[Rfam]
RNA sequence: UUCUUAUCAAGAGUGGUGGAGGGACUGGCCCUGUGAAACCCGGCAACCUGUUAAUAGUUAACAGUUAUUAGUUAAUAGUGAAGAGUUUAGUAAUAAUUAUAGAAAGUUAUUAUUAAGAAAUUACGAAAAUAUUUCAUAUAAAACUCUAAAUUUUAAACUUUUAAUUUUUAACUGUAUUCGUGGUGCUAAUUCCAGCAGCUGUAGAGCUGAUAGAUGAGAG
Number, nucleotide and partner (000 for none) at each position: 001u220002u219003c218004u217005u216006a215007u214008c213009a000010a000011g000012a000013g041014u000015g040016g039017u038018g000019g000020a000021g031022g030023g029024a000025c195026u194027g193028g192029c023030c022031c021032u000033g000034u000035g000036a000037a000038a017039c016040c015041c013042g187043g186044c185045a184046a000047c183048c182049u000050g178051u000052u000053a000054a000055u000056a000057g000058u000059u000060a000061a000062c000063a000064g000065u000066u000067a000068u000069u000070a000071g000072u000073u000074a000075a000076u000077a000078g000079u000080g000081a000082a000083g000084a000085g000086u000087u000088u000089a000090g000091u000092a000093a000094u000095a000096a000097u000098u000099a000100u000101a000102g000103a000104a000105a000106g000107u000108u000109a000110u000111u000112a000113u000114u000115a000116a000117g000118a000119a000120a000121u000122u000123a000124c000125g000126a000127a000128a000129a000130u000131a000132u000133u000134u000135c000136a000137u000138a000139u000140a000141a000142a000143a000144c000145u000146c000147u000148a000149a000150a000151u000152u000153u000154u000155a000156a000157a000158c000159u000160u000161u000162u000163a000164a000165u000166u000167u000168u000169u000170a000171a000172c000173u000174g000175u000176a000177u000178u050179c000180g000181u000182g048183g047184u045185g044186c043187u042188a000189a000190u000191u212192c028193c027194a026195g025196c209197a208198g207199c206200u205201g000202u000203a000204g000205a200206g199207c198208u197209g196210a000211u000212a191213g008214a007215u006216g005217a004218g003219a002220g001
Shown here is a 220-nucleotide RNA from Clostridium disporicum, a member of the family "SAM riboswitch aptamer (S box leader)". The SAM riboswitch is found upstream of a number of genes which code for proteins involved in methionine or cysteine biosynthesis in Gram-positive bacteria.